Shown here is a 75-nucleotide sequence from Equus caballus, a member of the family "Small nucleolar RNA ZL2".
[Rfam]
RNA sequence: GGCCUCAGGUGAUGGAGAAGUGACCGGGGAAGACUGUGACCGAAGUGGGAUGUAUUCGUACUGGCUGAUGGGGCC
Numbered sequence: 001g002g003c004c005u006c007a008g009g010u011g012a013u014g015g016a017g018a019a020g021u022g023a024c025c026g027g028g029g030a031a032g033a034c035u036g037u038g039a040c041c042g043a044a045g046u047g048g049g050a051u052g053u054a055u056u057c058g059u060a061c062u063g064g065c066u067g068a069u070g071g072g073g074c075c
Base pairs, nucleotide, nucleotide: 001075002074003073004072005071006070007069011065013063014062015061019056020055021054022053024049025048027046032041
Gene Ontology terms of the family: nucleolus and RNA processing.
Pairs were carried over by alignment from the consensus structure, which was predicted with RNAfold.
The family's RNA type in Rfam is C/D-box small nucleolar RNA.
On this family, see Kishore et al., Genome Biol 2013: "Insights into snoRNA biogenesis and processing from PAR-CLIP of snoRNA core proteins and small RNA sequencing".